[Rfam]
RNA sequence: GAGCAUCCUUAAUAAACCCCCCAGCUGCAGUUUGUUGCUUCUGGGACAAGAAAGGGUGCAAUAUCAAUCUUAGAACCAUCCAAAGCUGAGAGCCAUGUGACUAGCUCUUGGUUAUUUCACCUCUAAGACAUUA
Numbered sequence: 001g002a003g004c005a006u007c008c009u010u011a012a013u014a015a016a017c018c019c020c021c022c023a024g025c026u027g028c029a030g031u032u033u034g035u036u037g038c039u040u041c042u043g044g045g046a047c048a049a050g051a052a053a054g055g056g057u058g059c060a061a062u063a064u065c066a067a068u069c070u071u072a073g074a075a076c077c078a079u080c081c082a083a084a085g086c087u088g089a090g091a092g093c094c095a096u097g098u099g100a101c102u103a104g105c106u107c108u109u110g111g112u113u114a115u116u117u118c119a120c121c122u123c124u125a126a127g128a129c130a131u132u133a
Base pairs, nucleotide, nucleotide: 003059004058005057006056009051010050020045021044022043023042024041027038028037064133068128069127070126071125072124073123074122084113085112086111087110088109089108090107092105093104